[Rfam]
RNA sequence: GAGUUAACAAUGAUUAUAAAAAUAAUUCUUUAUUCUGACUUGCUCAAUUAGAUACGACAAACCCCUUAUUACACCCAUAGAAUCUAAGUUAC
Numbered sequence: 001g002a003g004u005u006a007a008c009a010a011u012g013a014u015u016a017u018a019a020a021a022a023u024a025a026u027u028c029u030u031u032a033u034u035c036u037g038a039c040u041u042g043c044u045c046a047a048u049u050a051g052a053u054a055c056g057a058c059a060a061a062c063c064c065c066u067u068a069u070u071a072c073a074c075c076c077a078u079a080g081a082a083u084c085u086a087a088g089u090u091a092c
Stems, first nucleotide, its partner, number of pairs: 003092002006090002